[Rfam]
RNA sequence: CUUCAACGAGCCCAGCCACAACGGCCGCUCCGCGGGCCGAUCCUGGCCGUAGGUCGCCAGCAACGCCUGCGCCUC
Numbered sequence: 001c002u003u004c005a006a007c008g009a010g011c012c013c014a015g016c017c018a019c020a021a022c023g024g025c026c027g028c029u030c031c032g033c034g035g036g037c038c039g040a041u042c043c044u045g046g047c048c049g050u051a052g053g054u055c056g057c058c059a060g061c062a063a064c065g066c067c068u069g070c071g072c073c074u075c
Stems, first nucleotide, its partner, number of pairs: 015025003031071003038065002043060003047056001049054001

Shown here is a 75-nucleotide RNA from Streptomyces spiroverticillatus, a member of the family "ASpks TB sRNA". The base pairs follow the family's consensus structure, which is taken from published work. The family's RNA type in Rfam is antisense RNA.